[Rfam]
RNA sequence: GAAACUGUUAAACCUGUUUUGGAUCUCACCAAUUCCAUUAUACAUCGGGUGGAAUGAAUAACAUGUUCUUUUGCUCUGUGCAUGGAGAUGCCACCAUGCGCUCUCGGGCUCUUCUGUUUCUGCUCUUCGUGUUUUUGCCUAUGCUGCCCGC
Numbered sequence: 001g002a003a004a005c006u007g008u009u010a011a012a013c014c015u016g017u018u019u020u021g022g023a024u025c026u027c028a029c030c031a032a033u034u035c036c037a038u039u040a041u042a043c044a045u046c047g048g049g050u051g052g053a054a055u056g057a058a059u060a061a062c063a064u065g066u067u068c069u070u071u072u073g074c075u076c077u078g079u080g081c082a083u084g085g086a087g088a089u090g091c092c093a094c095c096a097u098g099c100g101c102u103c104u105c106g107g108g109c110u111c112u113u114c115u116g117u118u119u120c121u122g123c124u125c126u127u128c129g130u131g132u133u134u135u136u137g138c139c140u141a142u143g144c145u146g147c148c149c150g151c
Stems, first nucleotide, its partner, number of pairs: 007025001008023001011020002046150007054142003060133006073123002077116002082112001084110002090101002
Background:
The family of this 151-nucleotide sequence from Paslahepevirus balayani is "Hepatitis E virus cis-reactive element". It is one of the family's seed sequences. Rfam classes the family as a cis-regulatory element. About the family: This family represents a cis-reactive element from Hepatitis E virus which is thought to be essential for 'some step in gene expression'.